A member of the RNA family "Purine riboswitch aptamer" from Photobacterium ganghwense, 100 nucleotides long. Lineage of the source: Bacteria > Pseudomonadati > Gammaproteobacteria > Vibrionaceae > Photobacterium. The match comes from Rfam's covariance-model search (74 bits).
RNA sequence: UCCAUAGCUGGCAGAACACUUCGUAUAACCCCAUUAAUAAGGUAUGGGGGUUUCUACCAGAAUCCGUAAAAUUCUGAUUACGAAGAGUGAAGCGCAAAUG
Numbered sequence: 001u002c003c004a005u006a007g008c009u010g011g012c013a014g015a016a017c018a019c020u021u022c023g024u025a026u027a028a029c030c031c032c033a034u035u036a037a038u039a040a041g042g043u044a045u046g047g048g049g050g051u052u053u054c055u056a057c058c059a060g061a062a063u064c065c066g067u068a069a070a071a072u073u074c075u076g077a078u079u080a081c082g083a084a085g086a087g088u089g090a091a092g093c094g095c096a097a098a099u100g
Stems, first nucleotide, its partner, number of pairs: 019085007029049006058076006